Shown here is a 248-nucleotide RNA sequence from Desulfobacteraceae bacterium SEEP-SAG9, a member of the family "Bacterial large signal recognition particle RNA". Rfam's curators write: The signal recognition particle (SRP) is a universally conserved ribonucleoprotein involved in the co-translational targeting of proteins to membranes.
[Rfam]
RNA sequence: UUGUGCUAGGCGGGGAGUUAGCGGUGCCCUUUGCCCGAAAUCCGCUUUAUGCGGGGCUGAAUUCCCUCUAAAGGGUUUAAUCCUGGAAGGUUAUGAGUUGUGUUGAUCGGCCGCCGCGCAACAGACGGUUACGAACCUCGUCAGGUCCGGAAGGAAGCAGCGAUAAGUAAUGCAGUCUGUGUCGUGGAUUGAUUCCGGUCAUUUUAAUGACUUGCGCAUUUCAGAAAAACUCGAUAGCGGGUGCACAA
Number, nucleotide and partner (000 for none) at each position: 001u248002u247003g246004u245005g244006c243007u000008a000009g058010g057011c056012g030013g029014g028015g027016a000017g025018u024019u023020a000021g000022c000023g019024g018025u017026g000027c015028c014029c013030u012031u000032u000033g000034c055035c054036c053037g052038a000039a050040a000041u000042c000043c000044g000045c000046u000047u000048u000049a000050u039051g000052c037053g036054g035055g034056g011057c010058u009059g000060a000061a000062u000063u000064c241065c240066c239067u000068c237069u236070a235071a000072a000073g232074g231075g230076u229077u228078u000079a220080a219081u000082c000083c000084u218085g217086g215087a000088a213089g212090g211091u210092u000093a000094u206095g205096a204097g000098u000099u000100g000101u000102g000103u000104u201105g200106a199107u198108c197109g196110g195111c000112c000113g000114c187115c186116g185117c184118g183119c181120a180121a000122c179123a178124g177125a176126c175127g000128g171129u170130u169131a168132c167133g000134a000135a000136c000137c000138u163139c162140g161141u160142c000143a000144g000145g000146u155147c154148c153149g000150g000151a000152a000153g148154g147155a146156a000157g000158c000159a000160g141161c140162g139163a138164u000165a000166a000167g132168u131169a130170a129171u128172g000173c000174a000175g126176u125177c124178u123179g122180u120181g119182u000183c118184g117185u116186g115187g114188a000189u000190u000191g000192a000193u000194u000195c110196c109197g108198g107199u106200c105201a104202u000203u000204u096205u095206a094207a000208u000209g000210a091211c090212u089213u088214g000215c086216g000217c085218a084219u080220u079221u000222c000223a000224g000225a000226a000227a000228a077229a076230c075231u074232c073233g000234a000235u070236a069237g068238c000239g066240g065241g064242u000243g006244c005245a004246c003247a002248a001

NCBI's taxonomy places the organism under Bacteria, Pseudomonadati, Desulfobacteria, Desulfobacterales, Desulfobacteraceae. A search with the family's covariance model found it, with a score of 147 bits. The family's consensus secondary structure is taken from published work.